[Rfam]
The family of this 180-nucleotide RNA sequence from Actinoplanes siamensis is "c-di-AMP riboswitch aptamer (ydaO/yuaA leader)". On this family, see Barrick et al., Proc Natl Acad Sci U S A 2004: "New RNA motifs suggest an expanded scope for riboswitches in bacterial genetic control". A search with the family's covariance model found it, with a score of 63 bits.
RNA sequence: GUGGCUGGAACGCCGAGUCCUGCCUGCUGGUCACGGUCAACAACGCACAGGCAUGGAGCGGGGGACCCACGGUUCUCGGCGCGCUCAGCGGAGCGCGCCUCGGGGUGAAGCCGCACGACGCGGCCGGGCUCCUCGGCCCGAACCCGACAGCUCACCUCGCAGGCGUGGAGGGGAACUUCA
Number, nucleotide and partner (000 for none) at each position: 001g000002u000003g000004g000005c000006u000007g000008g000009a000010a000011c165012g164013c163014c162015g000016a000017g000018u057019c056020c055021u000022g000023c000024c000025u000026g000027c000028u000029g000030g000031u000032c000033a000034c000035g000036g000037u000038c000039a000040a000041c000042a000043a000044c000045g000046c000047a000048c000049a000050g000051g000052c000053a000054u000055g020056g019057a018058g160059c159060g158061g157062g156063g155064g000065a000066c000067c000068c102069a000070c000071g000072g000073u000074u000075c000076u000077c000078g000079g000080c000081g000082c000083g000084c000085u000086c000087a000088g000089c000090g000091g000092a000093g000094c000095g000096c000097g000098c000099c000100u000101c000102g068103g145104g144105g143106u000107g000108a000109a000110g000111c123112c122113g121114c120115a000116c000117g000118a000119c000120g114121c113122g112123g111124c000125c000126g139127g138128g137129c136130u000131c000132c000133u000134c000135g000136g129137c128138c127139c126140g000141a000142a000143c105144c104145c103146g000147a000148c000149a000150g000151c000152u000153c000154a000155c063156c062157u061158c060159g059160c058161a000162g014163g013164c012165g011166u000167g000168g000169a000170g000171g000172g000173g000174a000175a000176c000177u000178u000179c000180a000